[Rfam]
RNA: Exoribonuclease-resistant RNA (xrRNA) plant-infecting virus (class 3)
RNA sequence: ACCCUAGCCAGUAACAGUUGUUGCAAUAGCUGGAAGGGUAAAGCCAACGAA
Numbered sequence: 001a002c003c004c005u006a007g008c009c010a011g012u013a014a015c016a017g018u019u020g021u022u023g024c025a026a027u028a029g030c031u032g033g034a035a036g037g038g039u040a041a042a043g044c045c046a047a048c049g050a051a
Stems, first nucleotide, its partner, number of pairs: 001039004008033002011031001012028002017048004